This 178-nucleotide sequence from Otariodibacter oris belongs to the Rfam family "Actinobacillus sRNA 11". It scores 56 bits against the family's covariance model. Rfam describes the family as follows. Arrc stands for Actinobacillus pleuropneumoniae Regulatory RNA Candidate. TargetRNA2 was used for the predictions. radA gene target may be involved in stress resistance. For this family Rfam cites "A computational strategy for the search of regulatory small RNAs in Actinobacillus pleuropneumoniae" (Rossi et al., RNA, 2016).

[Rfam]
RNA sequence: AAAUUGUUGAAUAAAUAGUCUUCCAAAAUGGGAAAAAAAUGCGUAUUAUACGCACCCUUAAUUCAAGGAAGUGAACUUUCUUUGGAUACUAGAUGCAAGUUAAAAGUACGGUUUAUACCGUACUUUGUUAUUUGUGGGCUUUUUUACUGUAUUUUGUAUAAAAUGUCAGCAAGGAUGA
Numbered sequence: 001a002a003a004u005u006g007u008u009g010a011a012u013a014a015a016u017a018g019u020c021u022u023c024c025a026a027a028a029u030g031g032g033a034a035a036a037a038a039a040u041g042c043g044u045a046u047u048a049u050a051c052g053c054a055c056c057c058u059u060a061a062u063u064c065a066a067g068g069a070a071g072u073g074a075a076c077u078u079u080c081u082u083u084g085g086a087u088a089c090u091a092g093a094u095g096c097a098a099g100u101u102a103a104a105a106g107u108a109c110g111g112u113u114u115a116u117a118c119c120g121u122a123c124u125u126u127g128u129u130a131u132u133u134g135u136g137g138g139c140u141u142u143u144u145u146a147c148u149g150u151a152u153u154u155u156g157u158a159u160a161a162a163a164u165g166u167c168a169g170c171a172a173g174g175a176u177g178a
Stems, first nucleotide, its partner, number of pairs: 002140001004138002008134004027094001029092001030090002033087001040054006064084008099129001101127002104125009147169003153163003
Dot-bracket structure: .(.((..((((...............(.(((.(......((((((...)))))).........((((((((.....))))))))..).)).).)....(.((.(((((((((....))))))))))).).))))..)).)......(((...(((.....)))...))).........